[Rfam]
RNA sequence: AUUCCCCUUUGGCUACCACAUUUUCUCUAACUGAUAGAUUUUAGUGGCUAUGCUUAUGGGAUAAUAGAUGAAACUUGCCGUGACCUGAGAGGGAGGGGGUUUUGGUCCCUUCCUUUUGUAUGAACUGGCUGAACAGAAAAAG
Numbered sequence: 001a002u003u004c005c006c007c008u009u010u011g012g013c014u015a016c017c018a019c020a021u022u023u024u025c026u027c028u029a030a031c032u033g034a035u036a037g038a039u040u041u042u043a044g045u046g047g048c049u050a051u052g053c054u055u056a057u058g059g060g061a062u063a064a065u066a067g068a069u070g071a072a073a074c075u076u077g078c079c080g081u082g083a084c085c086u087g088a089g090a091g092g093g094a095g096g097g098g099g100u101u102u103u104g105g106u107c108c109c110u111u112c113c114u115u116u117u118g119u120a121u122g123a124a125c126u127g128g129c130u131g132a133a134c135a136g137a138a139a140a141a142g
Stems, first nucleotide, its partner, number of pairs: 004060003016047004077129004094117004